[Rfam]
The record is an 81-nucleotide RNA, which matches "skipping-rope RNA" in Rfam. Rfam classes the family as a small RNA. The sequence is in the family's curated seed alignment.
RNA sequence: GUUAUAUGAGGUCGGAAAUGGUUCCCGACACACUCCAUCUGGAGUACCUGAGAUGCUGGAUACACCGCCCAGCCAUAUGAU
Numbered sequence: 001g002u003u004a005u006a007u008g009a010g011g012u013c014g015g016a017a018a019u020g021g022u023u024c025c026c027g028a029c030a031c032a033c034u035c036c037a038u039c040u041g042g043a044g045u046a047c048c049u050g051a052g053a054u055g056c057u058g059g060a061u062a063c064a065c066c067g068c069c070c071a072g073c074c075a076u077a078u079g080a081u
Stems, first nucleotide, its partner, number of pairs: 001081008011029005019067004031050001032045004055073005
Dot-bracket structure: ((((((((..(((((...[[[[..))))).(((((......))))....)....(((((....]]]].)))))))))))))